[Rfam]
RNA sequence: UGUUCAUCAAGAGCAGCAGAGAGACUCGGCUCGCAGAAGCUGCAGCAACCCACAUCAGGUGGGUGCUAACGCCGGGAACGAUGGAGG
Numbered sequence: 001u002g003u004u005c006a007u008c009a010a011g012a013g014c015a016g017c018a019g020a021g022a023g024a025c026u027c028g029g030c031u032c033g034c035a036g037a038a039g040c041u042g043c044a045g046c047a048a049c050c051c052a053c054a055u056c057a058g059g060u061g062g063g064u065g066c067u068a069a070c071g072c073c074g075g076g077a078a079c080g081a082u083g084g085a086g087g
Stems, first nucleotide, its partner, number of pairs: 001087001003085006013043005021032003026075004044067004049063005071079001
Dot-bracket structure: (.((((((....(((((...(((..[[[[)))......)))))((((.(((((.....)))))))))...(]]]]...))))))).)
This 87-nucleotide RNA from Arcanobacterium haemolyticum belongs to the Rfam family "SAM riboswitch aptamer (S box leader)". NCBI's taxonomy places the organism under Bacteria, Actinomycetes, Actinomycetales, Actinomycetaceae, Arcanobacterium haemolyticum.